RNA sequence: AAUUACGGUUAGGGGUGCCCUUCAAACCAGGAGCGGCUGAGAUUAUACCCUACAACCUGAUCCGGAUAAUACCGGCGGAGGGAAACCAGUGCUUUUCGCU
Numbered sequence: 001a002a003u004u005a006c007g008g009u010u011a012g013g014g015g016u017g018c019c020c021u022u023c024a025a026a027c028c029a030g031g032a033g034c035g036g037c038u039g040a041g042a043u044u045a046u047a048c049c050c051u052a053c054a055a056c057c058u059g060a061u062c063c064g065g066a067u068a069a070u071a072c073c074g075g076c077g078g079a080g081g082g083a084a085a086c087c088a089g090u091g092c093u094u095u096u097c098g099c100u
Base pairs, nucleotide, nucleotide: 007087008086009085010084011051012050013049014048016045017037018036019035021033022032023031056081057080058079062075063074064073065072
Dot-bracket structure: ......((((((((.((((.(((.......))).))).......)..))))....(((...((((......))))...)))..)))).............
A member of the RNA family "TPP riboswitch aptamer (THI element)" from Balneola sp., 100 nucleotides long. Vitamin B(1) in its active form thiamin pyrophosphate (TPP) is an essential coenzyme that is synthesised by coupling of pyrimidine and thiazole moieties in bacteria. It scores 66 bits against the family's covariance model. Gene Ontology term of the family: thiamine pyrophosphate binding. The source organism's lineage runs through Bacteria, Balneolota, Balneolales, Balneolaceae and Balneola.